[Rfam]
RNA sequence: UCCGAUACUGGCAAAGCCGGAGAAAUCCGGUGACGCAAAGCCACGGGUCCUCGGUCAUCGAAAGAUGGCACGGAUCGCCGGGUUGCCGAAG
Numbered sequence: 001u002c003c004g005a006u007a008c009u010g011g012c013a014a015a016g017c018c019g020g021a022g023a024a025a026u027c028c029g030g031u032g033a034c035g036c037a038a039a040g041c042c043a044c045g046g047g048u049c050c051u052c053g054g055u056c057a058u059c060g061a062a063a064g065a066u067g068g069c070a071c072g073g074a075u076c077g078c079c080g081g082g083u084u085g086c087c088g089a090a091g
Base pairs, nucleotide, nucleotide: 001091003088004087011036012035016031017030018029019028020027021026034077039084040083041082042081044080045079046078047075048074049073

The record is a 91-nucleotide sequence from Desulfuromonas sp. DDH964, which matches "c-di-GMP-I-GGC riboswitch aptamer" in Rfam. Pairs were carried over by alignment from the consensus structure, which is taken from published work. The match comes from Rfam's covariance-model search (62 bits). The family is grouped with related families in Rfam's "c-di-GMP_I riboswitch clan". Rfam 15.1 lists 1,298 matches to the family in 717 species. The source organism's lineage runs through Bacteria, Pseudomonadati, Desulfuromonadia, Desulfuromonadales and Desulfuromonas.